The record is a 299-nucleotide sequence from Clostridium homopropionicum, which matches "Group I catalytic intron" in Rfam. The base pairs follow the family's consensus structure, which is taken from published work. For this family Rfam cites "Self-splicing of group I introns" (Cech, Annu Rev Biochem, 1990).
[Rfam]
RNA sequence: AGACCCUAUUAAGUAUAGCUUGAUAUUUGAGCGUGAAAAGAUGCGCUCUUUAAAUUGGGUGAAUUGCUGGAAAGCUAAACUGCAUACGCAGCAUGCCAAUCAGCAGCCAAGUCUGGGAAUAGCAUAAAAGUACCAGGAAGGUUCAGAGACUAGAGUGGUGAGUAGCUACGUAAUAAUCCACUCCACGAGUGCCCAAUUUAAUAAGAAUAUAUGUUCGUAUAUUAUUUGCUUUUUAUCGCAUAAUAUAAAUAUAAUUCUUAUUAAAAUGAUAUAGUCCAAUCUGAGUUAGAAUUGACUAA
Numbered sequence: 001a002g003a004c005c006c007u008a009u010u011a012a013g014u015a016u017a018g019c020u021u022g023a024u025a026u027u028u029g030a031g032c033g034u035g036a037a038a039a040g041a042u043g044c045g046c047u048c049u050u051u052a053a054a055u056u057g058g059g060u061g062a063a064u065u066g067c068u069g070g071a072a073a074g075c076u077a078a079a080c081u082g083c084a085u086a087c088g089c090a091g092c093a094u095g096c097c098a099a100u101c102a103g104c105a106g107c108c109a110a111g112u113c114u115g116g117g118a119a120u121a122g123c124a125u126a127a128a129a130g131u132a133c134c135a136g137g138a139a140g141g142u143u144c145a146g147a148g149a150c151u152a153g154a155g156u157g158g159u160g161a162g163u164a165g166c167u168a169c170g171u172a173a174u175a176a177u178c179c180a181c182u183c184c185a186c187g188a189g190u191g192c193c194c195a196a197u198u199u200a201a202u203a204a205g206a207a208u209a210u211a212u213g214u215u216c217g218u219a220u221a222u223u224a225u226u227u228g229c230u231u232u233u234u235a236u237c238g239c240a241u242a243a244u245a246u247a248a249a250u251a252u253a254a255u256u257c258u259u260a261u262u263a264a265a266a267u268g269a270u271a272u273a274g275u276c277c278a279a280u281c282u283g284a285g286u287u288a289g290a291a292u293u294g295a296c297u298a299a
Stems, first nucleotide, its partner, number of pairs: 007025007032040001054197005060191002065105006074096002106142002112136001118131001146277001148276005199263009284297005
The organism belongs to Clostridium homopropionicum, within Bacteria.